[Rfam]
RNA sequence: AGCGUUGCGCGGUGGCCGUAUGGUGGCCAAUGAGGUUUAUCCGAAGCGCGAUUAUUGCUCACUGAAAACUUUUCGCAAUACCCCACCGUGACGACUUGCAAUAUAGUCGACAUUGGCAAUUUUUAACAGUCUCUACGGAGA
Numbered sequence: 001a002g003c004g005u006u007g008c009g010c011g012g013u014g015g016c017c018g019u020a021u022g023g024u025g026g027c028c029a030a031u032g033a034g035g036u037u038u039a040u041c042c043g044a045a046g047c048g049c050g051a052u053u054a055u056u057g058c059u060c061a062c063u064g065a066a067a068a069c070u071u072u073u074c075g076c077a078a079u080a081c082c083c084c085a086c087c088g089u090g091a092c093g094a095c096u097u098g099c100a101a102u103a104u105a106g107u108c109g110a111c112a113u114u115g116g117c118a119a120u121u122u123u124u125a126a127c128a129g130u131c132u133c134u135a136c137g138g139a140g141a
Stems, first nucleotide, its partner, number of pairs: 020052002023049002026047002034042002086116002088113003092109005130141004

Background:
This 141-nucleotide RNA from Pan troglodytes belongs to the Rfam family "U4 spliceosomal RNA". Pairs were carried over by alignment from the consensus structure, which is taken from published work. A search with the family's covariance model found it, with a score of 90 bits. The family's RNA type in Rfam is spliceosomal small nuclear RNA. Lineage of the source: Eukaryota > Haplorrhini > Hominidae > Homininae > Pan. U4 small nuclear RNA (U4 snRNA) is a component of the major U2-dependent spliceosome.